[Rfam]
RNA sequence: UACUAAGAGUUUAUAGUGGAUGCCUUGGGACUAGAAGUCGAUGAAGGACGUGAUAACCUGCGAUAAGCAACGGGGAAGUGGAAAUAGCUUUUGAUCCGUUGAUUUCCGAAUGGGGCAACCCGCUGAUAUUAACCCAUCAGCAUAUAUUAAUGAAUACAUAGUUAAUAUAAGAGACACCUAGGGAAGUGAAACAUCUCAGUACCUAGAGGAAAAUAAAAUAAGAAAAUGAUUCCCUAAGUAGCGGCGAGCGAACGGGGAAAAGCCCAAACCAGGUUUACCUGGGGUUGUAGGACUCUCUUACAGAGUUACAAAAUCAAUUGAUAGCAAAAAUAAUUGGAAAAUUAUGCCAUAGAAAGUGAAAGCCUUGUAUGCGAAAUCAAUUGAUCUCUUGAGAGUAUCCUGAGUACGACGAGACACGAGAAAUCUUGUCGGAAUCUGCGAGGACCAUCUCGUAAGGCUAAAUACUAUCUAGUCACCGAUAGUGAACCAGUACCGUGAGGGAAAGGUGAAAAGUACCCCGAGAGGGGAGUGAAAAAGUAUCCUGAAACUAUAAACUUACAAG
Numbered sequence: 001u002a003c004u005a006a007g008a009g010u011u012u013a014u015a016g017u018g019g020a021u022g023c024c025u026u027g028g029g030a031c032u033a034g035a036a037g038u039c040g041a042u043g044a045a046g047g048a049c050g051u052g053a054u055a056a057c058c059u060g061c062g063a064u065a066a067g068c069a070a071c072g073g074g075g076a077a078g079u080g081g082a083a084a085u086a087g088c089u090u091u092u093g094a095u096c097c098g099u100u101g102a103u104u105u106c107c108g109a110a111u112g113g114g115g116c117a118a119c120c121c122g123c124u125g126a127u128a129u130u131a132a133c134c135c136a137u138c139a140g141c142a143u144a145u146a147u148u149a150a151u152g153a154a155u156a157c158a159u160a161g162u163u164a165a166u167a168u169a170a171g172a173g174a175c176a177c178c179u180a181g182g183g184a185a186g187u188g189a190a191a192c193a194u195c196u197c198a199g200u201a202c203c204u205a206g207a208g209g210a211a212a213a214u215a216a217a218a219u220a221a222g223a224a225a226a227u228g229a230u231u232c233c234c235u236a237a238g239u240a241g242c243g244g245c246g247a248g249c250g251a252a253c254g255g256g257g258a259a260a261a262g263c264c265c266a267a268a269c270c271a272g273g274u275u276u277a278c279c280u281g282g283g284g285u286u287g288u289a290g291g292a293c294u295c296u297c298u299u300a301c302a303g304a305g306u307u308a309c310a311a312a313a314u315c316a317a318u319u320g321a322u323a324g325c326a327a328a329a330a331u332a333a334u335u336g337g338a339a340a341a342u343u344a345u346g347c348c349a350u351a352g353a354a355a356g357u358g359a360a361a362g363c364c365u366u367g368u369a370u371g372c373g374a375a376a377u378c379a380a381u382u383g384a385u386c387u388c389u390u391g392a393g394a395g396u397a398u399c400c401u402g403a404g405u406a407c408g409a410c411g412a413g414a415c416a417c418g419a420g421a422a423a424u425c426u427u428g429u430c431g432g433a434a435u436c437u438g439c440g441a442g443g444a445c446c447a448u449c450u451c452g453u454a455a456g457g458c459u460a461a462a463u464a465c466u467a468u469c470u471a472g473u474c475a476c477c478g479a480u481a482g483u484g485a486a487c488c489a490g491u492a493c494c495g496u497g498a499g500g501g502a503a504a505g506g507u508g509a510a511a512a513g514u515a516c517c518c519c520g521a522g523a524g525g526g527g528a529g530u531g532a533a534a535a536a537g538u539a540u541c542c543u544g545a546a547a548c549u550a551u552a553a554a555c556u557u558a559c560a561a562g
Stems, first nucleotide, its partner, number of pairs: 007557010022542001023506002027477002029474007036466002038172002046107003049062003068101007077089003112121003122141006143169009177208001178206005188195002218227002230462001231258005241249002261459004269282005289401003293395005311387001313385010324372003330345005348352001354366003407431008438453005493500002516527004
Source information:
Rfam assigns this 562-nucleotide part of an RNA from Mycoplasma sp. to the family "Bacterial large subunit ribosomal RNA".